[Rfam]
RNA: mir-971 microRNA precursor family
Organism: Drosophila navojoa
RNA sequence: CGUUGCGACCGCUGUAAAUUGUAAUCAUCAAAGCGUCUGCUGUAUCGCUUGGUGUUACUUCUUACAGUGAGCGCGGCG
Numbered sequence: 001c002g003u004u005g006c007g008a009c010c011g012c013u014g015u016a017a018a019u020u021g022u023a024a025u026c027a028u029c030a031a032a033g034c035g036u037c038u039g040c041u042g043u044a045u046c047g048c049u050u051g052g053u054g055u056u057a058c059u060u061c062u063u064a065c066a067g068u069g070a071g072c073g074c075g076g077c078g
Stems, first nucleotide, its partner, number of pairs: 006073002010069004015064003026054005032049003